[Rfam]
RNA sequence: ACUGAUCAAUGAUCGAAAACUUACUGUGUGGACUGUUGGAUGAAGCUUACGGAUAUGGGACUGAGAUCAGAU
Dot-bracket structure: .((((.............................................................))))..
Overview:
Shown here is a 72-nucleotide sequence from Clupea harengus, a member of the family "Small nucleolar RNA SNORD99". The family's consensus secondary structure was predicted with RNAalifold. Its Rfam clan is "SNORD58 clan". Rfam classes the family as a C/D-box small nucleolar RNA. Lineage of the source: Eukaryota > Chordata > Gnathostomata > Teleostomi > Clupea. For this family Rfam cites "Purified box C/D snoRNPs are able to reproduce site-specific 2'-O-methylation of target RNA in vitro" (Galardi et al., Mol Cell Biol, 2002). The match comes from Rfam's covariance-model search (63 bits).